[Rfam]
RNA sequence: UCUCGUGCGCAGUUACGGCUCGCACGGAUGACCUGCAAAAAGUGGUCAGCUUAUUUAUCCUGCUACGGCAAAUACAUUACGGGGUCUGUAAAAGUCAGAGUAGUGAAAUAUCGAAAAAGACAAGACAGC
Dot-bracket structure: ((.((((((..((....)).))))))))................................(((....))).............(.((((....(((......((.....).)......)))...)))))
RNA: Bacteriophage Diversity-Generating Retroelement RNA